This 80-nucleotide RNA sequence from Thamnophis sirtalis belongs to the Rfam family "mir-31 microRNA precursor family". Clan: mir-31 microRNA precursor family. A search with the family's covariance model found it, with a score of 53 bits. Rfam links the family to the GO terms gene silencing by miRNA and RISC complex. The base pairs follow the family's consensus structure, which was predicted with RNAalifold. NCBI's taxonomy places the organism under Eukaryota, Opisthokonta, Chordata, Tetrapoda, Thamnophis. For this family Rfam cites "The small RNA profile during Drosophila melanogaster development" (Aravin et al., Dev Cell, 2003).
RNA sequence: GAGAUGAAAGAGGGCAAUAUGUAGGCAUAGCAGGUUUUCAGUUCAUCAGCUAUGCCAACAUCUUGCCUCCUCUCCUGCUC
Numbered sequence: 001g002a003g004a005u006g007a008a009a010g011a012g013g014g015c016a017a018u019a020u021g022u023a024g025g026c027a028u029a030g031c032a033g034g035u036u037u038u039c040a041g042u043u044c045a046u047c048a049g050c051u052a053u054g055c056c057a058a059c060a061u062c063u064u065g066c067c068u069c070c071u072c073u074c075c076u077g078c079u080c
Base pairs, nucleotide, nucleotide: 006074007073009071010070012068013067014066015065016064017063019061020060021059024056025055026054027053028052029051030050031049